[Rfam]
RNA sequence: GAUACAGAGAUUGAAUAUACUCGUAUAGGUUUGGGAUAUGGCCCGAAUGUUUCUACCCGGAAGCCUUAACUUUCGGACUACGAGCAUGCAUGGAGCGAAU
Numbered sequence: 001g002a003u004a005c006a007g008a009g010a011u012u013g014a015a016u017a018u019a020c021u022c023g024u025a026u027a028g029g030u031u032u033g034g035g036a037u038a039u040g041g042c043c044c045g046a047a048u049g050u051u052u053c054u055a056c057c058c059g060g061a062a063g064c065c066u067u068a069a070c071u072u073u074c075g076g077a078c079u080a081c082g083a084g085c086a087u088g089c090a091u092g093g094a095g096c097g098a099a100u
Base pairs, nucleotide, nucleotide: 018086020084021083022082023081024080025079029048030047031046032045033044034043035042057076058075059074060073061072062071063070
This 100-nucleotide RNA from Paenibacillus arenilitoris belongs to the Rfam family "Purine riboswitch aptamer". The match comes from Rfam's covariance-model search (67 bits). The family has 133 seed sequences and 4,097 matches in Rfam 15.1.